[Rfam]
RNA: Bacterial RNase P class A
Organism: Cellvibrio polysaccharolyticus
RNA sequence: GGAGUUGGCUAGACAAUCGCUCGGGUGUUAACGGGGUAAUUCGCUUGCGUAUUAUCCGGUGCAUGCGGGAGGAAAGUCCGGGCUCCAUAGGGCAGAGCGCCAGGUAACGCCUGGGAGGUGUGAGCCUACGGAAAGUGCAGCAGAGAGCAGACCGCCUAAGCUUCAGGUGCUUCGGCAAACCGAAGCCGGUAAGGGUGAAAGGGUGCGGUAAGAGCGCACCGCGCAACUGGUAACAGUUUGCGGCAUGGUAAACCCCGCUCGGAGCAAGACCAAAUAGGAACCCAUUGGUGCGGCCCGCAUCGGGUUCGGGUAGGUUGCUUGAGGCAAGUGGUGACGCUUGUCCCAGAUGAAUGAUUGUCCACGACAGAACCCGGCUUACCGGCCAACUCCACUU
Numbered sequence: 001g002g003a004g005u006u007g008g009c010u011a012g013a014c015a016a017u018c019g020c021u022c023g024g025g026u027g028u029u030a031a032c033g034g035g036g037u038a039a040u041u042c043g044c045u046u047g048c049g050u051a052u053u054a055u056c057c058g059g060u061g062c063a064u065g066c067g068g069g070a071g072g073a074a075a076g077u078c079c080g081g082g083c084u085c086c087a088u089a090g091g092g093c094a095g096a097g098c099g100c101c102a103g104g105u106a107a108c109g110c111c112u113g114g115g116a117g118g119u120g121u122g123a124g125c126c127u128a129c130g131g132a133a134a135g136u137g138c139a140g141c142a143g144a145g146a147g148c149a150g151a152c153c154g155c156c157u158a159a160g161c162u163u164c165a166g167g168u169g170c171u172u173c174g175g176c177a178a179a180c181c182g183a184a185g186c187c188g189g190u191a192a193g194g195g196u197g198a199a200a201g202g203g204u205g206c207g208g209u210a211a212g213a214g215c216g217c218a219c220c221g222c223g224c225a226a227c228u229g230g231u232a233a234c235a236g237u238u239u240g241c242g243g244c245a246u247g248g249u250a251a252a253c254c255c256c257g258c259u260c261g262g263a264g265c266a267a268g269a270c271c272a273a274a275u276a277g278g279a280a281c282c283c284a285u286u287g288g289u290g291c292g293g294c295c296c297g298c299a300u301c302g303g304g305u306u307c308g309g310g311u312a313g314g315u316u317g318c319u320u321g322a323g324g325c326a327a328g329u330g331g332u333g334a335c336g337c338u339u340g341u342c343c344c345a346g347a348u349g350a351a352u353g354a355u356u357g358u359c360c361a362c363g364a365c366a367g368a369a370c371c372c373g374g375c376u377u378a379c380c381g382g383c384c385a386a387c388u389c390c391a392c393u394u
Stems, first nucleotide, its partner, number of pairs: 001390010012359007020069004025064004074377003078374005083264004090296004095260005100114005115129001116127004130255002135253002137249002152194002154190003160186005202220006221244001222242005227236003268316004278307006287301005323342008
Dot-bracket structure: ((((((((((.(((((((.((((.((((................................)))).))))....[[[.[[[[[((((...[[[[.((((((((((.....)))))(((((....)))).)((...((((.............(((((...(((((.................))))).)))..)).......((((((.......))))))(((((((((....))).))))).)...))..)))))))))))))...((((......((((((...(((((.]]]]))))))))))).....))))......((((((((....))))))))..........)))))))..........]]]]]]]]...))))))))))....